[Rfam]
RNA: Trypanosomatid snoRNA TB9Cs1H1
Organism: Trypanosoma theileri
RNA sequence: AGCGCAGAAGAAGAAACCAGUACUGGCUAACUAAUGCCUUGCUGGUGCCGACACUGUGCAAGA
Numbered sequence: 001a002g003c004g005c006a007g008a009a010g011a012a013g014a015a016a017c018c019a020g021u022a023c024u025g026g027c028u029a030a031c032u033a034a035u036g037c038c039u040u041g042c043u044g045g046u047g048c049c050g051a052c053a054c055u056g057u058g059c060a061a062g063a
Stems, first nucleotide, its partner, number of pairs: 002059006016046005